[Rfam]
RNA sequence: CAAGUAAGCUGGACAGCCGCGCGGCCGGGGCGAAAGGCCCGGCUGUGAGGAAAGUCCGGGCUCCAUAGGGCAAGGAUAACGGGUAACACCCGCCGGGGGCGACCCUAGGAAAAGUGCAACAGAGAUAUACCGCCCCAGACCGUUUUCUGGUUUGGGGUAAGGGUGGAAAGGCGAGGUAAGAGCUCACCCGAUGGCUGGGAACAGUCCAUCGCUGUAAACUCUAUCCGGAGCAACGCCGUGGAGGGACACAUAAGGCCGGCCCGGCCGUCCCGGGGAGGCGGCUUGAGCGUACCGGCAACGGUGCGUCGAGAUAGAUGGCUGUCUUAAACGACAGAACCCGGCUUACAGGCUUACUUGUAUU
Number, nucleotide and partner (000 for none) at each position: 001c357002a356003a355004g354005u353006a352007a351008g350009c349010u348011g346012g323013a322014c321015a320016g319017c318018c317019g000020c047021g046022c045023g044024g043025c042026c041027g040028g039029g000030g000031c000032g000033a000034a000035a000036g000037g000038c000039c028040c027041g026042g025043c024044u023045g022046u021047g020048a000049g000050g000051a000052a344053a343054g342055u000056c341057c340058g339059g338060g337061c230062u229063c228064c227065a000066u000067a000068g000069g262070g261071c000072a000073a000074g226075g225076a224077u223078a222079a000080c092081g091082g090083g089084u000085a000086a000087c000088a000089c083090c082091c081092g080093c000094c108095g106096g105097g104098g103099g000100c000101g000102a000103c098104c097105c096106u095107a000108g094109g221110a220111a000112a000113a000114g219115u218116g215117c214118a213119a000120c000121a000122g000123a000124g000125a000126u000127a000128u000129a000130c162131c161132g158133c157134c156135c155136c154137a153138g152139a151140c150141c149142g148143u000144u000145u000146u000147c000148u142149g141150g140151u139152u138153u137154g136155g135156g134157g133158u132159a000160a000161g131162g130163g000164u000165g000166g000167a000168a000169a000170g188171g187172c000173g185174a184175g183176g000177u000178a000179a000180g000181a000182g000183c175184u174185c173186a000187c171188c170189c000190g210191a209192u208193g207194g206195c204196u203197g202198g000199g000200a000201a000202c197203a196204g195205u000206c194207c193208a192209u191210c190211g000212c000213u118214g117215u116216a000217a000218a115219c114220u110221c109222u078223a077224u076225c075226c074227g064228g063229a062230g061231c000232a000233a000234c280235g279236c278237c277238g000239u000240g000241g000242a000243g000244g271245g270246a000247c000248a000249c000250a000251u000252a000253a000254g266255g265256c264257c263258g000259g000260c000261c070262c069263g257264g256265c255266c254267g000268u000269c000270c245271c244272g000273g000274g000275g000276a000277g237278g236279c235280g234281g000282c000283u000284u000285g000286a000287g306288c305289g304290u303291a302292c301293c300294g299295g000296c000297a000298a000299c294300g293301g292302u291303g290304c289305g288306u287307c000308g000309a000310g000311a000312u000313a000314g000315a000316u000317g018318g017319c016320u015321g014322u013323c012324u000325u000326a000327a000328a000329c000330g000331a000332c000333a000334g000335a000336a000337c060338c059339c058340g057341g056342c054343u053344u052345a000346c011347a000348g010349g009350c008351u007352u006353a005354c004355u003356u002357g001358u000359a000360u000361u000
Bacterial RNase P class A: a 361-nucleotide RNA from Pseudoflavonifractor sp. AF19-9AC. The match comes from Rfam's covariance-model search (285 bits). Taxonomically the source falls in Pseudoflavonifractor (Bacteria, Bacillati, Clostridia, Eubacteriales). Rfam classes the family as a ribozyme.